The record is a 142-nucleotide RNA sequence from Argiope bruennichi, which matches "Small nucleolar RNA SNORA79" in Rfam. From the family's description: ACA65 (SNORA79) is a member of the H/ACA class of snoRNAs that guide the sites of modification of uridines to pseudouridines.
[Rfam]
RNA sequence: UGAUGAUAAUUCCUCAUGUGUCUGAAAGUUACAGGCAUAUGGUUUUAGGUCAUCAUAUAUAAACAGAAACUCUUCACCCAUGUUGGUUAUGUAAGCUGUGCUUACACAUAUUCCAUAGAUGGUUUUGCAGUUUCUGAUAAUU
Numbered sequence: 001u002g003a004u005g006a007u008a009a010u011u012c013c014u015c016a017u018g019u020g021u022c023u024g025a026a027a028g029u030u031a032c033a034g035g036c037a038u039a040u041g042g043u044u045u046u047a048g049g050u051c052a053u054c055a056u057a058u059a060u061a062a063a064c065a066g067a068a069a070c071u072c073u074u075c076a077c078c079c080a081u082g083u084u085g086g087u088u089a090u091g092u093a094a095g096c097u098g099u100g101c102u103u104a105c106a107c108a109u110a111u112u113c114c115a116u117a118g119a120u121g122g123u124u125u126u127g128c129a130g131u132u133u134c135u136g137a138u139a140a141u142u
Stems, first nucleotide, its partner, number of pairs: 001055007014042005020036004066134006078122004084115003090106005